[Rfam]
RNA sequence: UUUACGGGGAUUAGGCGAUCUCCCCGCGAGGCGACAUGCCCAAGUAUCGCGUCCUUAAUGAUGAGGGACGCAGCAUG
Numbered sequence: 001u002u003u004a005c006g007g008g009g010a011u012u013a014g015g016c017g018a019u020c021u022c023c024c025c026g027c028g029a030g031g032c033g034a035c036a037u038g039c040c041c042a043a044g045u046a047u048c049g050c051g052u053c054c055u056u057a058a059u060g061a062u063g064a065g066g067g068a069c070g071c072a073g074c075a076u077g
Base pairs, nucleotide, nucleotide: 005026006025007024008023009022010021049071050070051069052068053067054066
This 77-nucleotide RNA from Bradyrhizobium sp. Leo170 belongs to the Rfam family "chrB-a RNA". By type it is a cis-regulatory element.